[Rfam]
RNA sequence: AAUAAAGAAAAAACCUCUUUCUGUAUAAUGCCGAUAAUAAGGUUCGGCAGUUUCUACCAAACAGCCGUAAACUGUUUGACUACAGUAAGAGGGGUCUGAGAU
Numbered sequence: 001a002a003u004a005a006a007g008a009a010a011a012a013a014c015c016u017c018u019u020u021c022u023g024u025a026u027a028a029u030g031c032c033g034a035u036a037a038u039a040a041g042g043u044u045c046g047g048c049a050g051u052u053u054c055u056a057c058c059a060a061a062c063a064g065c066c067g068u069a070a071a072c073u074g075u076u077u078g079a080c081u082a083c084a085g086u087a088a089g090a091g092g093g094g095u096c097u098g099a100g101a102u
Stems, first nucleotide, its partner, number of pairs: 018088002021085005029049006058078007

A member of the RNA family "Purine riboswitch aptamer" from Petrotoga mobilis, 102 nucleotides long. It is one of the family's seed sequences. The base pairs follow the family's consensus structure, which is taken from published work.